[Rfam]
RNA sequence: UUUUUGCUCCUAAUGUUUUAGGAGAUAGUGAGAAUUAUAUAAUUAGGAAAAAAGCUUAGUUAUUGUCAGAAUGAACUUCUGGCUAUUAAACCCUCAAAUUGCGGGAAGUCCCUAAAGCAAUUUCAACCAAGCAGACGUGGUAACACAGUUUGUGGCACAGGUAAUGACUCGUGGUUAUUUUUUUAUUGAGGUUAUUAAUUAAAUAAAAAAAUUAGGUAAAAUCGAGAUUGAUUAUCUAUAUAUUUGCUACUUAUUAAGUAGGUAAAACCUUACAUCCAAAGCGUAGCAGGUAGGAUGUAUGGUUUUACAGGGCUUUUAUUCUAGCUCUUUCAUUUUUUUUAGGUGAGCUGCUUCGCCUUAAGGGAAAAUAUAGAUAAAUGGGUAAUCCGCAGCCAAGCUCCCAUACUAACAAAUAAGGGUGUGCAGUUCAUCGACUAGAUAUUGGUUGGCGCAAGCUUAAGAUAUAGUCAGGCCCCAUUCGAAAGAAUGCA
Numbered sequence: 001u002u003u004u005u006g007c008u009c010c011u012a013a014u015g016u017u018u019u020a021g022g023a024g025a026u027a028g029u030g031a032g033a034a035u036u037a038u039a040u041a042a043u044u045a046g047g048a049a050a051a052a053a054g055c056u057u058a059g060u061u062a063u064u065g066u067c068a069g070a071a072u073g074a075a076c077u078u079c080u081g082g083c084u085a086u087u088a089a090a091c092c093c094u095c096a097a098a099u100u101g102c103g104g105g106a107a108g109u110c111c112c113u114a115a116a117g118c119a120a121u122u123u124c125a126a127c128c129a130a131g132c133a134g135a136c137g138u139g140g141u142a143a144c145a146c147a148g149u150u151u152g153u154g155g156c157a158c159a160g161g162u163a164a165u166g167a168c169u170c171g172u173g174g175u176u177a178u179u180u181u182u183u184u185a186u187u188g189a190g191g192u193u194a195u196u197a198a199u200u201a202a203a204u205a206a207a208a209a210a211a212u213u214a215g216g217u218a219a220a221a222u223c224g225a226g227a228u229u230g231a232u233u234a235u236c237u238a239u240a241u242a243u244u245u246g247c248u249a250c251u252u253a254u255u256a257a258g259u260a261g262g263u264a265a266a267a268c269c270u271u272a273c274a275u276c277c278a279a280a281g282c283g284u285a286g287c288a289g290g291u292a293g294g295a296u297g298u299a300u301g302g303u304u305u306u307a308c309a310g311g312g313c314u315u316u317u318a319u320u321c322u323a324g325c326u327c328u329u330u331c332a333u334u335u336u337u338u339u340u341a342g343g344u345g346a347g348c349u350g351c352u353u354c355g356c357c358u359u360a361a362g363g364g365a366a367a368a369u370a371u372a373g374a375u376a377a378a379u380g381g382g383u384a385a386u387c388c389g390c391a392g393c394c395a396a397g398c399u400c401c402c403a404u405a406c407u408a409a410c411a412a413a414u415a416a417g418g419g420u421g422u423g424c425a426g427u428u429c430a431u432c433g434a435c436u437a438g439a440u441a442u443u444g445g446u447u448g449g450c451g452c453a454a455g456c457u458u459a460a461g462a463u464a465u466a467g468u469c470a471g472g473c474c475c476c477a478u479u480c481g482a483a484a485g486a487a488u489g490c491a
Stems, first nucleotide, its partner, number of pairs: 005025001007024007089447004096440001100391006110382003392427002397422002400419001404415002407412001431470001433469005449456002476489005

The family of this 491-nucleotide RNA from Elaphomyces granulatus is "Group I catalytic intron".
The base pairs follow the family's consensus structure, which is taken from published work.
The organism belongs to Elaphomyces, within Eukaryota.
The match comes from Rfam's covariance-model search (63 bits).
From the family's description: Group I catalytic introns are large self-splicing ribozymes. They catalyse their own excision from mRNA, tRNA and rRNA precursors in a wide range of organisms. The core secondary structure consists of 9 paired regions (P1-P9).
On this family, see Cate et al., Science 1996: "Crystal structure of a group I ribozyme domain: principles of RNA packing".